Description: Rfam assigns this 84-nucleotide RNA sequence from Comamonas serinivorans to the family "SucA RNA motif". Taxonomically the source falls in Comamonas (Bacteria, Pseudomonadota, Betaproteobacteria, Comamonadaceae). Rfam links the family to the GO term regulation of translation. Pairs were carried over by alignment from the consensus structure, which is taken from published work. The match comes from Rfam's covariance-model search (61 bits).
RNA sequence: UCGCAUCCGCCAGCCGGUUCAGCCGUGAAGCGGAAGGUGUGUCAAACCAACAUUCUUCUCCCUCAAGGGGAGUAAAGGUGAGCG
Dot-bracket structure: .(((.(((((....((((...))))....))))).(((.(....))))..((((...((((((...))))))....)))).)))
For this family Rfam cites "Identification of 22 candidate structured RNAs in bacteria using the CMfinder comparative genomics pipeline" (Weinberg et al., Nucleic Acids Res, 2007).